Rfam assigns this 77-nucleotide RNA sequence from Bos taurus to the family "Small nucleolar RNA SNORD112". Its Rfam clan is "SNORD74 clan". It is one of the family's seed sequences. Pairs were carried over by alignment from the consensus structure, which was predicted with WAR. Rfam 15.1 lists 191 matches to the family in 119 species.
Nucleotides: 077
Base pairs, nucleotide, nucleotide: 002074003073004072005071006070
Number, partner (000 for none) and nucleotide at each position: 001000g002074g003073g004072a005071u006070c007000u008000a009000u010000g011000a012000u013000g014000a015000a016000a017000a018000a019000g020000u021000g022000u023000u024000u025000a026000u027000g028000a029000a030000c031000a032000a033000a034000g035000g036000g037000u038000c039000g040000u041000g042000a043000u044000u045000a046000a047000u048000c049000c050000a051000g052000u053000u054000c055000u056000g057000c058000a059000c060000a061000a062000a063000g064000u065000a066000c067000u068000a069000a070006g071005g072004u073003c074002c075000a076000u077000u